Bacterial RNase P class A: a 400-nucleotide RNA sequence from Rickettsia akari. By type it is a ribozyme. About the family: Ribonuclease P (RNase P) is a ubiquitous endoribonuclease, found in archaea, bacteria and eukarya as well as chloroplasts and mitochondria. The sequence is in the family's curated seed alignment.

RNA sequence: UAAACAGGUCGUGCAGUUGCGUGAUGAUAUAGCAAAGCUGUAGAUCACGAGGAAAGUCCGGACUCUAUAGAGGUAUGGUGCCGGUUAACCUCCGGCAAAGUAUUAUUACUUUAGGGAAAGUACCACAGAAAAUAUACCGCUGAAUUGUACGUAAGUACUCGGUAAGGGUGAAAAGGUACGGUAAGAGCGUACCGGUAAGUUGGUAACAAAUUACGCAUGGUAAACCCCACCAAGAGCAAGAUCAAAUAGGCAUUACAGAACUUAUCAAGUUCCCGGAUUAUCUCUAGCCGGCUUGUAAUGCGGGUAGAUCGCUUGAGGUAAACGGUAACGUUUAUCCUAGAUAAAUAACUGCAAUGAAUUUAUAUUCAUACAGAAUCCGGCUUAUAGACCUUAUUGUCAU
Numbered sequence: 001u002a003a004a005c006a007g008g009u010c011g012u013g014c015a016g017u018u019g020c021g022u023g024a025u026g027a028u029a030u031a032g033c034a035a036a037g038c039u040g041u042a043g044a045u046c047a048c049g050a051g052g053a054a055a056g057u058c059c060g061g062a063c064u065c066u067a068u069a070g071a072g073g074u075a076u077g078g079u080g081c082c083g084g085u086u087a088a089c090c091u092c093c094g095g096c097a098a099a100g101u102a103u104u105a106u107u108a109c110u111u112u113a114g115g116g117a118a119a120g121u122a123c124c125a126c127a128g129a130a131a132a133u134a135u136a137c138c139g140c141u142g143a144a145u146u147g148u149a150c151g152u153a154a155g156u157a158c159u160c161g162g163u164a165a166g167g168g169u170g171a172a173a174a175g176g177u178a179c180g181g182u183a184a185g186a187g188c189g190u191a192c193c194g195g196u197a198a199g200u201u202g203g204u205a206a207c208a209a210a211u212u213a214c215g216c217a218u219g220g221u222a223a224a225c226c227c228c229a230c231c232a233a234g235a236g237c238a239a240g241a242u243c244a245a246a247u248a249g250g251c252a253u254u255a256c257a258g259a260a261c262u263u264a265u266c267a268a269g270u271u272c273c274c275g276g277a278u279u280a281u282c283u284c285u286a287g288c289c290g291g292c293u294u295g296u297a298a299u300g301c302g303g304g305u306a307g308a309u310c311g312c313u314u315g316a317g318g319u320a321a322a323c324g325g326u327a328a329c330g331u332u333u334a335u336c337c338u339a340g341a342u343a344a345a346u347a348a349c350u351g352c353a354a355u356g357a358a359u360u361u362a363u364a365u366u367c368a369u370a371c372a373g374a375a376u377c378c379g380g381c382u383u384a385u386a387g388a389c390c391u392u393a394u395u396g397u398c399a400u
Stems, first nucleotide, its partner, number of pairs: 001396003006391005011385001012353007020049006028042004054383003058380005063236004076232005081095004096114001097112006115227002120225002122221003137167002139163005147158004175193006194216001195214004200209003240310004250301006286293002317336008
Dot-bracket structure: (((..(((((((((((((.((((((..((((.......)))).))))))....[[[.[[[[[((((.........(((((((((.......))))(((((((....)))))).)((...(((((............(((((((...((((....)))))))))..)).......((((((.......))))))(((((.(((....))).)))).)..)))..)))))))))))))...((((......((((((..............................((....))..)))))).....))))......((((((((....))))))))..........)))))))......................]]]]]]]].).)))))..)))....